[Rfam]
RNA sequence: GUUCGCGCUGAGGCCUGUUUCCUGGGCCACACGGGGGACUUGAUCCUCACCUGGUUGCCCAGGGGAAAGUCCCGGACCUCGGCAGAAAGUGCCACGUGCUCACGCUCGUAGACCCUCCAGGCCCUUCACACUCAGCCCACUAAGAAGCAAACCCGCGUGGGACGGGGAAGCUGAGCGGCGUGUUGCGGGAUGUCACCCGUCAGCUGUCAUGGUGACGCAGGCAGUGUGCACGUGGGUGCGCUCCAACCAAGCGGGGCUCAUUCUCAGGGCGGC
Numbered sequence: 001g002u003u004c005g006c007g008c009u010g011a012g013g014c015c016u017g018u019u020u021c022c023u024g025g026g027c028c029a030c031a032c033g034g035g036g037g038a039c040u041u042g043a044u045c046c047u048c049a050c051c052u053g054g055u056u057g058c059c060c061a062g063g064g065g066a067a068a069g070u071c072c073c074g075g076a077c078c079u080c081g082g083c084a085g086a087a088a089g090u091g092c093c094a095c096g097u098g099c100u101c102a103c104g105c106u107c108g109u110a111g112a113c114c115c116u117c118c119a120g121g122c123c124c125u126u127c128a129c130a131c132u133c134a135g136c137c138c139a140c141u142a143a144g145a146a147g148c149a150a151a152c153c154c155g156c157g158u159g160g161g162a163c164g165g166g167g168a169a170g171c172u173g174a175g176c177g178g179c180g181u182g183u184u185g186c187g188g189g190a191u192g193u194c195a196c197c198c199g200u201c202a203g204c205u206g207u208c209a210u211g212g213u214g215a216c217g218c219a220g221g222c223a224g225u226g227u228g229c230a231c232g233u234g235g236g237u238g239c240g241c242u243c244c245a246a247c248c249a250a251g252c253g254g255g256g257c258u259c260a261u262u263c264u265c266a267g268g269g270c271g272g273c
Stems, first nucleotide, its partner, number of pairs: 003272004008267004013222006021063007034048005068258002071256002073253001081093004094109003098105002111194003118189001121186002127182003137178002140175001224243001226241004

Shown here is a 273-nucleotide sequence from Cavia porcellus, a member of the family "RNase MRP". The source organism's lineage runs through Eukaryota, Opisthokonta, Deuterostomia, Teleostomi and Cavia.